[Rfam]
RNA sequence: AGCCUUCUGAAUCGGUGCAGAAAUUUCUUCAGACACCAACCCAUCAGGGCUGAUCAGACUUCCAAGGUAUGUGAAGUU
Numbered sequence: 001a002g003c004c005u006u007c008u009g010a011a012u013c014g015g016u017g018c019a020g021a022a023a024u025u026u027c028u029u030c031a032g033a034c035a036c037c038a039a040c041c042c043a044u045c046a047g048g049g050c051u052g053a054u055c056a057g058a059c060u061u062c063c064a065a066g067g068u069a070u071g072u073g074a075a076g077u078u
Base pairs, nucleotide, nucleotide: 002077003076005074006073008071009070011068012067013066016064017063020061021060024058025057026056029053030052
The record is a 78-nucleotide RNA from Schistosoma haematobium, which matches "mir-3492 microRNA precursor family" in Rfam. The organism belongs to Schistosoma, within Eukaryota. A search with the family's covariance model found it, with a score of 46 bits.